[Rfam]
RNA sequence: AGACCUUUGCCAACACUCUGGCCUUUAUCCCUUUCCUUUUGGAAAGCUAUCACCAGGAUAAUGUGCCUAUUUUGGUGCAAAGAAGAUCAAAUCUUCACAGAAUGACACACUACUCACCACGGCAUUCCCGACAUCCAAAUGGAUGCAGUGGUCCAUCAUCCUUUGUGUCUACAA
Numbered sequence: 001a002g003a004c005c006u007u008u009g010c011c012a013a014c015a016c017u018c019u020g021g022c023c024u025u026u027a028u029c030c031c032u033u034u035c036c037u038u039u040u041g042g043a044a045a046g047c048u049a050u051c052a053c054c055a056g057g058a059u060a061a062u063g064u065g066c067c068u069a070u071u072u073u074g075g076u077g078c079a080a081a082g083a084a085g086a087u088c089a090a091a092u093c094u095u096c097a098c099a100g101a102a103u104g105a106c107a108c109a110c111u112a113c114u115c116a117c118c119a120c121g122g123c124a125u126u127c128c129c130g131a132c133a134u135c136c137a138a139a140u141g142g143a144u145g146c147a148g149u150g151g152u153c154c155a156u157c158a159u160c161c162u163u164u165g166u167g168u169c170u171a172c173a174a
Stems, first nucleotide, its partner, number of pairs: 007080003020067003023063001025061004031046006104169004117151004122146003126143003